[Rfam]
Nucleotides: 236
Base pairs, nucleotide, nucleotide: 001218002217003216004215005214006213007212008211009210010209011207012206017074020073021072022071023070024069025068026067078199079198080197081196082195083194084193221236222235223234224233
Number, partner (000 for none) and nucleotide at each position: 001218c002217g003216g004215a005214u006213g007212g008211g009210g010209g011207c012206c013000g014000g015000c016000g017074a018000u019000g020073c021072g022071c023070c024069u025068c026067g027000g028000c029000c030000a031000u032000a033000u034000g035000c036000g037000g038000a039000a040000c041000a042000g043000c044000u045000c046000u047000u048000g049000c050000u051000g052000g053000u054000c055000c056000g057000c058000c059000g060000c061000u062000c063000g064000g065000c066000u067026c068025g069024g070023g071022g072021u073020g074017u075000g076000g077000a078199c079198u080197g081196u082195u083194g084193u085000c086000g087000g088000c089000c090000g091000c092000g093000c094000c095000g096000g097000c098000g099000g100000c101000c102000a103000a104000a105000g106000c107000c108000c109000g110000g111000g112000g113000g114000c115000c116000c117000u118000a119000g120000g121000u122000g123000c124000c125000c126000c127000c128000g129000g130000u131000g132000g133000c134000c135000a136000u137000c138000g139000u140000c141000g142000g143000c144000a145000c146000g147000g148000c149000c150000g151000g152000u153000a154000c155000c156000c157000g158000c159000g160000c161000g162000c163000c164000a165000a166000a167000a168000g169000g170000c171000g172000u173000g174000u175000c176000c177000c178000u179000c180000g181000g182000g183000g184000c185000a186000c187000u188000g189000c190000g191000c192000u193084g194083c195082a196081a197080c198079g199078g200000c201000c202000u203000g204000c205000g206012g207011g208000c209010u210009c211008c212007c213006c214005a215004u216003c217002c218001g219000a220000c221236c222235c223234g224233u225000c226000u227000u228000g229000a230000a231000a232000c233224a234223c235222g236221g